A member of the RNA family "Small nucleolar RNA snoR27" from Papaver nudicaule, 97 nucleotides long. The organism belongs to Papaver, within Eukaryota. Rfam links the family to the GO terms nucleolus and RNA processing. Its Rfam clan is "snR68 clan".

RNA sequence: UCAGGAUCAGUGAUGUUUAAAUACUGCGUUAUCUUCCUGAAAAAAUUCUUCCAUGGAGGAAUUUUGCUUGAUGACAAAAUGCCUACUGAGGUCCUUU
Numbered sequence: 001u002c003a004g005g006a007u008c009a010g011u012g013a014u015g016u017u018u019a020a021a022u023a024c025u026g027c028g029u030u031a032u033c034u035u036c037c038u039g040a041a042a043a044a045a046u047u048c049u050u051c052c053a054u055g056g057a058g059g060a061a062u063u064u065u066g067c068u069u070g071a072u073g074a075c076a077a078a079a080u081g082c083c084u085a086c087u088g089a090g091g092u093c094c095u096u097u
Stems, first nucleotide, its partner, number of pairs: 003095005
Dot-bracket structure: ..(((((...................................................................................)))))..